The family of this 83-nucleotide RNA from Anolis carolinensis is "mir-194 microRNA precursor family".
The family has 46 seed sequences and 936 matches in Rfam 15.1.
A reference for the family is Lagos-Quintana et al. (2003), "New microRNAs from mouse and human", RNA.
Rfam's curators put it in the seed alignment.

[Rfam]
RNA sequence: UGGUUCCCAUCGGCUGUAACAGCAACUCCAUGUGGAAGCAGUCCGGCCGUUCCAGUGGAGCGGCUGUUAUAGUCGGUGGGGGC
Dot-bracket structure: .........(((...((((((((..((((((.(((................)))))))))..))))))))...))).......